[Rfam]
RNA sequence: GACACGAAAAGGCACACUGUACGAAAGUGCAGGCCGCAAAGCUACAGGGGCUUCACGAAACGGGAGUUUCGUAUGCCAGCCAGCUUCCGAA
Dot-bracket structure: ...........((...((((((....))))))...))..((((...(((((....((((((....))))))...)))..))))))......